[Rfam]
RNA sequence: CGAUGGUGGCGUUUUUGGGGACAGGUGUCCGUGUCGCGCGUUUCGUGGGCCGGCGGUGUGGUCGGUGACUCGACCUCUCGGCCCCGGGGG
Numbered sequence: 001c002g003a004u005g006g007u008g009g010c011g012u013u014u015u016u017g018g019g020g021a022c023a024g025g026u027g028u029c030c031g032u033g034u035c036g037c038g039c040g041u042u043u044c045g046u047g048g049g050c051c052g053g054c055g056g057u058g059u060g061g062u063c064g065g066u067g068a069c070u071c072g073a074c075c076u077c078u079c080g081g082c083c084c085c086g087g088g089g090g
Stems, first nucleotide, its partner, number of pairs: 004087001006085001008084002011082002018079004027069003030065001033062007
The family of this 90-nucleotide RNA from Gorilla gorilla is "NoRC associated RNA, pRNA". Rfam links the family to the GO term chromatin remodeling. Pairs were carried over by alignment from the consensus structure, which is taken from published work. Rfam 15.1 lists 354 matches to the family in 128 species. For this family Rfam cites "The structure of NoRC-associated RNA is crucial for targeting the chromatin remodelling complex NoRC to the nucleolus" (Mayer et al., EMBO Rep, 2008). By type it is a non-coding RNA gene.